[Rfam]
The family of this 52-nucleotide sequence from Chelatococcus asaccharovorans is "serC leader". It scores 65 bits against the family's covariance model. From the family's description: This family is a putative regulatory RNA structure that is found upstream of the serC-serA operon in some alpha-proteobacteria. The final stem of the structure overlaps the ribosome binding site of the serC reading frame. Rfam classes the family as a cis-regulatory leader.
RNA sequence: CCGCGGGACACCUUCCCCCAACGGAAGGCGCCCAUCUGUAAGGAUGGACUGA
Numbered sequence: 001c002c003g004c005g006g007g008a009c010a011c012c013u014u015c016c017c018c019c020a021a022c023g024g025a026a027g028g029c030g031c032c033c034a035u036c037u038g039u040a041a042g043g044a045u046g047g048a049c050u051g052a
Stems, first nucleotide, its partner, number of pairs: 011028006032047006